[Rfam]
RNA sequence: CGCUGCUGCCCAGUUCUUGGGCGUUUCCUCCCUAACGACUUCAGGCCGCGGUUCGUCCGCGGCCUUUUUUUUCGCCGCCA
Dot-bracket structure: .......((((.......))))....................(((((((((.....)))))))))...............

The family of this 80-nucleotide RNA from Hyphococcus luteus is "Makes More Granules Regulator RNA (mmgR)". The family has 87 seed sequences and 1,791 matches in Rfam 15.1. It scores 63 bits against the family's covariance model. By type it is a small RNA.